[Rfam]
RNA: mir-1285 microRNA precursor family
RNA sequence: GCGGGAUUUCACCUUGCUGACCAGGCUGGUCUCAAACUCCUGGCCUGGGCAACAUGGUGAAACCCCAA
Numbered sequence: 001g002c003g004g005g006a007u008u009u010c011a012c013c014u015u016g017c018u019g020a021c022c023a024g025g026c027u028g029g030u031c032u033c034a035a036a037c038u039c040c041u042g043g044c045c046u047g048g049g050c051a052a053c054a055u056g057g058u059g060a061a062a063c064c065c066c067a068a
Stems, first nucleotide, its partner, number of pairs: 007062007019050001021048005032043003